[Rfam]
Shown here is a 104-nucleotide RNA from Pelargonium fulgidum, a member of the family "Plastid-rps12 3UTR RNA".
Plastid rpl20 is a non-coding RNA (ncRNA) recognised in plastids. It was found in the three prime untranslated region (3UTR) of rps12 gene, its 3UTR location sugest a role in transcript maduration.
The organism belongs to Pelargonium, within Eukaryota.
The sequence is in the family's curated seed alignment.
The family has 1,299 seed sequences and 1,710 matches in Rfam 15.1.
RNA sequence: GGUUUUCAUUGGUUCAAAUCCAAUCACCUUCAUUUUGAAUUUAAGAUGAGAAAGAAUUCCCCAUUGGUAGCAAAUGCUUAUCCCAUUAAGCGGGGAAAUCCUAU
Numbered sequence: 001g002g003u004u005u006u007c008a009u010u011g012g013u014u015c016a017a018a019u020c021c022a023a024u025c026a027c028c029u030u031c032a033u034u035u036u037g038a039a040u041u042u043a044a045g046a047u048g049a050g051a052a053a054g055a056a057u058u059c060c061c062c063a064u065u066g067g068u069a070g071c072a073a074a075u076g077c078u079u080a081u082c083c084c085a086u087u088a089a090g091c092g093g094g095g096a097a098a099u100c101c102u103a104u
Stems, first nucleotide, its partner, number of pairs: 009023004060094003063086002066082005